[Rfam]
RNA sequence: ACUGGGCGCAGUGGCGCAUGCCGGUAGUCCCAGCUCCUUGAGAGGCUGAGCAAAAUGGAUCGCUUGAGCCCAGGAGUUCUGGGUUGCAAUGCGCUAUGCUGAGCGGGUGUCCGCACCAAGGUCGUCAUCAAUAUGGUGAGCCCCCGGGAGCUGGGGCACACCAGGUUGACUAAGGUGGGAUGAACCGGCCCAGGUUGGAGACGGAGCAGGUUAAAGCUCCCGUGACGGUCAGUAGUGGGAUCGUGUCUGUGAAUAGCCAUUUUAGCGUAGCCUGGACAACACAGAGAGAAGCGGGCUCCC
Numbered sequence: 001a002c003u004g005g006g007c008g009c010a011g012u013g014g015c016g017c018a019u020g021c022c023g024g025u026a027g028u029c030c031c032a033g034c035u036c037c038u039u040g041a042g043a044g045g046c047u048g049a050g051c052a053a054a055a056u057g058g059a060u061c062g063c064u065u066g067a068g069c070c071c072a073g074g075a076g077u078u079c080u081g082g083g084u085u086g087c088a089a090u091g092c093g094c095u096a097u098g099c100u101g102a103g104c105g106g107g108u109g110u111c112c113g114c115a116c117c118a119a120g121g122u123c124g125u126c127a128u129c130a131a132u133a134u135g136g137u138g139a140g141c142c143c144c145c146g147g148g149a150g151c152u153g154g155g156g157c158a159c160a161c162c163a164g165g166u167u168g169a170c171u172a173a174g175g176u177g178g179g180a181u182g183a184a185c186c187g188g189c190c191c192a193g194g195u196u197g198g199a200g201a202c203g204g205a206g207c208a209g210g211u212u213a214a215a216g217c218u219c220c221c222g223u224g225a226c227g228g229u230c231a232g233u234a235g236u237g238g239g240a241u242c243g244u245g246u247c248u249g250u251g252a253a254u255a256g257c258c259a260u261u262u263u264a265g266c267g268u269a270g271c272c273u274g275g276a277c278a279a280c281a282c283a284g285a286g287a288g289a290a291g292c293g294g295g296c297u298c299c300c
Stems, first nucleotide, its partner, number of pairs: 002045002005022004028043002048298004056290001060287002063284002068277001070275005079270003083266004088261004093257005099251001103250008111239002114237003118233001120230009129168004134163005140157005146151001170174001177220003181216001187212004195204003

Rfam assigns this 300-nucleotide RNA sequence from Eubucco bourcierii to the family "Metazoan signal recognition particle RNA". A reference for the family is Wild et al. (2002), "Towards the structure of the mammalian signal recognition particle", Curr Opin Struct Biol. Pairs were carried over by alignment from the consensus structure, which is taken from published work. From the family's description: The signal recognition particle (SRP) is a universally conserved ribonucleoprotein. It is involved in the co-translational targeting of proteins to membranes. The eukaryotic SRP consists of a 300-nucleotide 7S RNA and six proteins: SRPs 72, 68, 54, 19, 14, and 9. Its family is annotated with signal recognition particle, endoplasmic reticulum targeting and SRP-dependent cotranslational protein targeting to membrane, signal sequence recognition in the Gene Ontology. By type it is a non-coding RNA gene.